RNA sequence: CCCGUUGUGCAACCAACGGUAGUCUAGGGAUAGUGCGUCGCUGGUAACGGCGGGGUUCGAAGCUUCCUGACAAUGUACUCCCCAAUUAGGGCUUGUUCUCACCGUGAGGUGGAUCAAGGAUGCCGCUAGUAGCAAGCGGUUGAGAGG
Dot-bracket structure: .((((((......)))))).......((((..(.((.((((((....)))))).)).)......))))...........(((......)))((((......((....)).....))))...((((((.......)))))).......